[Rfam]
RNA: SAM riboswitch aptamer (S box leader)
RNA sequence: CUCUUAUCCCGAGUAGGCUAAGGGACAGGCCCGAUGACGCCCGGCAACCAUCAUCACAAGAAAAGAUGAUAAGGUGCUAACCUGUAGAAUGAAUUGGAUUCAUUCUGAAGAUAAGAG
Numbered sequence: 001c002u003c004u005u006a007u008c009c010c011g012a013g014u015a016g017g018c019u020a021a022g023g024g025a026c027a028g029g030c031c032c033g034a035u036g037a038c039g040c041c042c043g044g045c046a047a048c049c050a051u052c053a054u055c056a057c058a059a060g061a062a063a064a065g066a067u068g069a070u071a072a073g074g075u076g077c078u079a080a081c082c083u084g085u086a087g088a089a090u091g092a093a094u095u096g097g098a099u100u101c102a103u104u105c106u107g108a109a110g111a112u113a114a115g116a117g
Stems, first nucleotide, its partner, number of pairs: 001117008013042001016041003022032003026084003043078004048074002050070006085107009